[Rfam]
RNA sequence: CAAAUGGCCGACUAGGGUUCCGGCCCGCCGAUCGAGACGAUCGCGGGCGGCUGGUCCGAGAGUUGGCGACCUCCAGCGAGGUUACACGGCGGGACAAAAGCCCGGGAGAC
Number, nucleotide and partner (000 for none) at each position: 001c000002a000003a000004a000005u000006g000007g067008c066009c065010g064011a063012c062013u000014a000015g057016g056017g000018u000019u000020c054021c053022g051023g048024c047025c046026c045027g044028c043029c000030g000031a000032u000033c000034g000035a000036g000037a000038c000039g000040a000041u000042c000043g028044c027045g026046g025047g024048c023049g000050g000051c022052u000053g021054g020055u000056c016057c015058g000059a000060g000061a000062g012063u011064u010065g009066g008067c007068g083069a082070c081071c080072u079073c078074c000075a000076g000077c000078g073079a072080g071081g070082u069083u068084a000085c105086a000087c108088g000089g000090c000091g103092g102093g101094a000095c000096a000097a000098a000099a000100g000101c093102c092103c091104g000105g085106g000107a000108g087109a000110c000
The record is a 110-nucleotide sequence from Pseudomonas oryzae, which matches "Guanidine-I riboswitch aptamer" in Rfam. Taxonomically the source falls in Pseudomonas (Bacteria, Pseudomonadota, Pseudomonadales, Pseudomonadaceae).